Notes: Rfam assigns this 164-nucleotide part of an RNA from Neonectria ditissima to the family "Ascomycota telomerase RNA". The family is grouped with related families in Rfam's "Telomerase clan". The family has 4 seed sequences and 475 matches in Rfam 15.1. Gene Ontology terms of the family: telomere maintenance via telomerase, telomerase catalytic core complex and telomerase activity. For this family Rfam cites "The common ancestral core of vertebrate and fungal telomerase RNAs" (Qi et al., Nucleic Acids Res, 2013).

RNA sequence: CCCACCGUCGGGUACCAAACGGUUCUGACAGUUCCCUCAGCCAUCUUCUAUAGUUUGGUCUGAGAUGAUAGGGCGGUUUUUACGGAUGUUUUUUGUCCGCCCGGAAUGCCCUCCUUAGCUGCCCUCGUGGCCCGAUGGAGAGGAAUCAAAAACUAGUCCUUGUU
Number, nucleotide and partner (000 for none) at each position: 001c000002c000003c000004a000005c000006c000007g029008u028009c027010g026011g025012g024013u000014a023015c022016c021017a000018a000019a000020c000021g016022g015023u014024u012025c011026u010027g009028a008029c007030a000031g000032u000033u000034c000035c067036c064037u063038c062039a061040g060041c058042c057043a056044u000045c000046u000047u000048c053049u000050a000051u000052a000053g048054u000055u000056u043057g042058g041059u000060c040061u039062g038063a037064g036065a000066u000067g035068a000069u000070a000071g000072g000073g000074c000075g000076g000077u000078u000079u000080u000081u000082a000083c000084g000085g158086a157087u156088g153089u152090u000091u151092u150093u149094u148095g147096u000097c000098c000099g000100c000101c000102c000103g000104g000105a000106a000107u000108g000109c143110c142111c140112u139113c138114c137115u000116u000117a000118g000119c000120u000121g000122c134123c000124c000125u000126c000127g131128u000129g000130g000131c127132c000133c000134g122135a000136u000137g114138g113139a112140g111141a000142g110143g109144a000145a000146u000147c095148a094149a093150a092151a091152a089153c088154u000155a000156g087157u086158c085159c000160u000161u000162g000163u000164u000